Rfam assigns this 132-nucleotide sequence from Terrapene triunguis to the family "Small nucleolar RNA SNORA3/SNORA45 family". Rfam links the family to the GO terms nucleolus and RNA processing. Its Rfam clan is "SNORA3 clan". On this family, see Gu et al., Nucleic Acids Res 2005: "A novel experimental approach for systematic identification of box H/ACA snoRNAs from eukaryotes". Rfam classes the family as an H/ACA-box small nucleolar RNA. Lineage of the source: Eukaryota > Chordata > Teleostomi > Sauropsida > Terrapene.

RNA sequence: AUCGAGGCUAGAGUCACAUCCUGGCACUUCUCAUUGUCUUGGUGUGCUAUAGUUCUCGGAGAAAGACUACUGUUCUAUAUUCACUGCCUAUGGUGUGUUAUGCCUCAGUCAGUCACCUGAUCAGUAACAUUG
Numbered sequence: 001a002u003c004g005a006g007g008c009u010a011g012a013g014u015c016a017c018a019u020c021c022u023g024g025c026a027c028u029u030c031u032c033a034u035u036g037u038c039u040u041g042g043u044g045u046g047c048u049a050u051a052g053u054u055c056u057c058g059g060a061g062a063a064a065g066a067c068u069a070c071u072g073u074u075c076u077a078u079a080u081u082c083a084c085u086g087c088c089u090a091u092g093g094u095g096u097g098u099u100a101u102g103c104c105u106c107a108g109u110c111a112g113u114c115a116c117c118u119g120a121u122c123a124g125u126a127a128c129a130u131u132g
Stems, first nucleotide, its partner, number of pairs: 002059005007053003012048002015046006023038004070124003074120002083113004089107001092104003